[Rfam]
RNA: c-di-AMP riboswitch aptamer (ydaO/yuaA leader)
RNA sequence: AAUUUUUAAGCGCUGAAUUCUUUCCGCUGAAGGCUGCGGAAGGAAGCGGGGGACCCACUUUCUUGGGGUGAAUCUCCUUCCACUCGGGGAAACCCUGUGGAAGGGGUAGGGUUACCUCUUCGACCCGAACCCGUCAGCUAACCUCGCAAGCGUUUGAAGAGGAGGU
Dot-bracket structure: ..........((((...((((((((((........))))))))))((((((....((......))(((.....((((((((((.............))))))))))..((((..........))))...))).........)))))).))))..............